A member of the RNA family "Purine riboswitch aptamer" from Kroppenstedtia pulmonis, 102 nucleotides long. Taxonomically the source falls in Kroppenstedtia (Bacteria, Bacillati, Bacilli, Caryophanales). The family's consensus secondary structure is taken from published work. It scores 84 bits against the family's covariance model.

RNA sequence: GAAAAAAUGAAUGGUUUUUCUCAUAUAUGCUCAGGAAUAGGGCUUGAGCGUCUCUACCCGGAGACCGUAAAUCACCGGACUAUGGGAAUAAUCUUUCGCUUG
Numbered sequence: 001g002a003a004a005a006a007a008u009g010a011a012u013g014g015u016u017u018u019u020c021u022c023a024u025a026u027a028u029g030c031u032c033a034g035g036a037a038u039a040g041g042g043c044u045u046g047a048g049c050g051u052c053u054c055u056a057c058c059c060g061g062a063g064a065c066c067g068u069a070a071a072u073c074a075c076c077g078g079a080c081u082a083u084g085g086g087a088a089u090a091a092u093c094u095u096u097c098g099c100u101u102g
Stems, first nucleotide, its partner, number of pairs: 018088008029049007058078004063073002